[Rfam]
Nucleotides: 085
Stems, first nucleotide, its partner, number of pairs: 012037002017032006040079004045075003048070003055064003
Number, partner (000 for none) and nucleotide at each position: 001000c002000a003000a004000u005000g006000a007000a008000a009000a010000a011000g012037g013036c014000a015000a016000a017032c018031c019030a020029g021028u022027g023000g024000a025000a026000a027022c028021g029020c030019u031018g032017g033000g034000a035000c036013g037012c038000a039000a040079a041078g042077c043076c044000a045075c046074g047073g048070g049069u050068c051000u052000a053000c054000g055064g056063a057062c058000g059000u060000c061000a062057g063056u064055c065000u066000a067000a068050g069049a070048u071000c072000g073047c074046c075045g076043g077042g078041u079040u080000g081000c082000c083000c084000u085000u
This 85-nucleotide RNA sequence from Alicyclobacillaceae bacterium I2511 belongs to the Rfam family "c-di-GMP-I riboswitch aptamer".